[Rfam]
Shown here is a 54-nucleotide sequence from Synaphobranchus kaupii, a member of the family "UnaL2 LINE 3' element". A search with the family's covariance model found it, with a score of 61 bits. By type it is a cis-regulatory element.
RNA sequence: AAAAAAAAUAAAUGUAAGUCACUCUGGAUAAGAGCAUCUGCUAAAUGCCUAUAA
Numbered sequence: 001a002a003a004a005a006a007a008a009u010a011a012a013u014g015u016a017a018g019u020c021a022c023u024c025u026g027g028a029u030a031a032g033a034g035c036a037u038c039u040g041c042u043a044a045a046u047g048c049c050u051a052u053a054a
Base pairs, nucleotide, nucleotide: 013043014041015040016039022034023033024032025031